[Rfam]
RNA sequence: UUACUCCACUAGGGGUGCACCAUGUGCUGAGAGGGGGCUUGCUCCCAACCCUUUGAACUUGACCUGGUUCAUACCAGCGUAAGAAAGUGGGGAAACCGUAUG
Numbered sequence: 001u002u003a004c005u006c007c008a009c010u011a012g013g014g015g016u017g018c019a020c021c022a023u024g025u026g027c028u029g030a031g032a033g034g035g036g037g038c039u040u041g042c043u044c045c046c047a048a049c050c051c052u053u054u055g056a057a058c059u060u061g062a063c064c065u066g067g068u069u070c071a072u073a074c075c076a077g078c079g080u081a082a083g084a085a086a087g088u089g090g091g092g093a094a095a096c097c098g099u100a101u102g
Stems, first nucleotide, its partner, number of pairs: 006090005011052004017027004034045004058083004064077004
RNA: TPP riboswitch aptamer (THI element)
Organism: Desmospora activa